[Rfam]
RNA sequence: CCCGGCUUCAGGGCCAUCAGAGGAAUGUUCAUGUCAUGACCCCUGUCAGAUUCUCUGGAUCUGCGAAUCCUGCU
Numbered sequence: 001c002c003c004g005g006c007u008u009c010a011g012g013g014c015c016a017u018c019a020g021a022g023g024a025a026u027g028u029u030c031a032u033g034u035c036a037u038g039a040c041c042c043c044u045g046u047c048a049g050a051u052u053c054u055c056u057g058g059a060u061c062u063g064c065g066a067a068u069c070c071u072g073c074u
Base pairs, nucleotide, nucleotide: 011042012041013040015038021071022070023069024068025037026036027035047063048062049061050060051059052058053057
A member of the RNA family "Mammalian CPEB3 ribozyme" from Chelydra serpentina, 74 nucleotides long.
The mammalian CPEB3 ribozyme is a self cleaving RNA located in the second intron of the CPEB3 gene which belongs to a family of genes regulating messenger RNA polyadenylation.